[Rfam]
RNA sequence: GGCGCGGUAGCAAAGCGGUUAUGCAGCGGAUUGCAAAUCCGUCCAGGGUGGUUCGACUCCACUCCGCGCCU
Dot-bracket structure: (((((((..(((.........))).(((((.......)))))....(((((.......)))))))))))).

Background
This 71-nucleotide RNA from Sphaerotilus mobilis belongs to the Rfam family "tRNA". Gene Ontology term of the family: triplet codon-amino acid adaptor activity. By type it is a transfer RNA. Lineage of the source: Bacteria > Pseudomonadati > Pseudomonadota > Sphaerotilaceae > Sphaerotilus.